[Rfam]
RNA sequence: UAUGGGCAAAAUAUUUAUGCUUAUAUAAGUUCAUAAUACGGCUGAACGUUUCUACCAAUUACCUAAAUAAUUGACUAUAAGUUUUGUGCCUUAUUUU
Dot-bracket structure: ..................(((((((...(((((.........)))))........((((((......))))))..)))))))...............
RNA: Purine riboswitch aptamer
Organism: Brachyspira pilosicoli